[Rfam]
RNA sequence: AGUGAGUGAGUAGUUCGCUGAUAUACUGAAGGGUGCGUUUAAUUCACACCAGCAAGCUUGCCUUGUGGGUUCCUUCAGGCAGGGGAAAGCUCACUUUUAU
Numbered sequence: 001a002g003u004g005a006g007u008g009a010g011u012a013g014u015u016c017g018c019u020g021a022u023a024u025a026c027u028g029a030a031g032g033g034u035g036c037g038u039u040u041a042a043u044u045c046a047c048a049c050c051a052g053c054a055a056g057c058u059u060g061c062c063u064u065g066u067g068g069g070u071u072c073c074u075u076c077a078g079g080c081a082g083g084g085g086a087a088a089g090c091u092c093a094c095u096u097u098u099a100u
Base pairs, nucleotide, nucleotide: 001095002094003093004092005091006090007089016083018082019081020080026078027077028076029075030074031073032050033049034048035047037045053065054064055063056062